[Rfam]
RNA sequence: ACAUAAAGAGGAGUCUUAAUUUAUUUCUUAACCUUUGCUAUGUAAGGGUCUUUGGUGUUUUUAAUGAUUGCCUCUUCAUCCUUUA
Numbered sequence: 001a002c003a004u005a006a007a008g009a010g011g012a013g014u015c016u017u018a019a020u021u022u023a024u025u026u027c028u029u030a031a032c033c034u035u036u037g038c039u040a041u042g043u044a045a046g047g048g049u050c051u052u053u054g055g056u057g058u059u060u061u062u063a064a065u066g067a068u069u070g071c072c073u074c075u076u077c078a079u080c081c082u083u084u085a
Stems, first nucleotide, its partner, number of pairs: 010077003016064004025055002031049008
RNA: Stem loopII regulatory element in POLB
Organism: Erinaceus europaeus